[Rfam]
Source information:
The family of this 72-nucleotide sequence from Acanthosepion pharaonis is "mir-219 microRNA precursor family". The family's consensus secondary structure was predicted with RNAalifold. Gene Ontology terms of the family: RISC complex and miRNA-mediated post-transcriptional gene silencing. On this family, see Lim et al., Science 2003: "Vertebrate microRNA genes".

RNA sequence: UCAGGCGAUGAUUGUCCAAACGCAAUUCUUGUAACUUCAUAUCGAGAACUGUGUUUGGACAUCAGUGCUUGU
Numbered sequence: 001u002c003a004g005g006c007g008a009u010g011a012u013u014g015u016c017c018a019a020a021c022g023c024a025a026u027u028c029u030u031g032u033a034a035c036u037u038c039a040u041a042u043c044g045a046g047a048a049c050u051g052u053g054u055u056u057g058g059a060c061a062u063c064a065g066u067g068c069u070u071g072u
Base pairs, nucleotide, nucleotide: 002071003070004069005068006067007066009064010063011062012061014060015059016058017057018056021053022052023051024050026048027047028046029045030044031043